The record is a 78-nucleotide RNA sequence from Eubucco bourcierii, which matches "Small nucleolar RNA SNORD69" in Rfam.
RNA sequence: UACACAAAGCAUAUGAUGAAAAAGCAUUGAAACUGACACUCUGUGAAGUCUGUUCAAUCCAACCCUGAGCUUUGUGCU
Numbered sequence: 001u002a003c004a005c006a007a008a009g010c011a012u013a014u015g016a017u018g019a020a021a022a023a024g025c026a027u028u029g030a031a032a033c034u035g036a037c038a039c040u041c042u043g044u045g046a047a048g049u050c051u052g053u054u055c056a057a058u059c060c061a062a063c064c065c066u067g068a069g070c071u072u073u074g075u076g077c078u
Base pairs, nucleotide, nucleotide: 003076004075005074006073007072008071009070010069
On this family, see Huttenhofer et al., EMBO J 2001: "RNomics: an experimental approach that identifies 201 candidates for novel, small, non-messenger RNAs in mouse".
The family's RNA type in Rfam is C/D-box small nucleolar RNA.
Rfam links the family to the GO terms RNA processing and nucleolus.
Pairs were carried over by alignment from the consensus structure.